A member of the RNA family "EcpR1" from Rhizobium sp. Leaf371, 103 nucleotides long. It is annotated as a small RNA. From the family's description: Perviously named SmelC291, SmrC10, or Sra33. According to its overproduction phenotype it was renamed Elongated Cell Phenotype RNA1. It scores 73 bits against the family's covariance model. On this family, see Schluter et al., BMC Genomics 2010: "A genome-wide survey of sRNAs in the symbiotic nitrogen-fixing alpha-proteobacterium Sinorhizobium meliloti".
RNA sequence: UUACCCCAUGAUGUCAGGUCCGCCGCAUCUCCUGGGUCGUGGGGUCGUCGGCCGGUGCGCAACAGUGGUUCCUCGUGCCGCUUGCGUGCCGGCCGGCAUCCAU
Dot-bracket structure: ..((((((((...(((((............)))))..)))))))).((((((((((...............................))))))))))......